[Rfam]
RNA sequence: UCUCUGGAGAGCGUUCAGCGCAGGUUUUAGCCGUAUGACCGUCAUUGGGCCCGUGCUGAACCACCAACGGGGAAACCCUGAAAAGGGCAAACUCUCAGGUGCAAGGACAGAGA
Numbered sequence: 001u002c003u004c005u006g007g008a009g010a011g012c013g014u015u016c017a018g019c020g021c022a023g024g025u026u027u028u029a030g031c032c033g034u035a036u037g038a039c040c041g042u043c044a045u046u047g048g049g050c051c052c053g054u055g056c057u058g059a060a061c062c063a064c065c066a067a068c069g070g071g072g073a074a075a076c077c078c079u080g081a082a083a084a085g086g087g088c089a090a091a092c093u094c095u096c097a098g099g100u101g102c103a104a105g106g107a108c109a110g111a112g113a
Stems, first nucleotide, its partner, number of pairs: 001113006013061009063100003067095001070094003076087002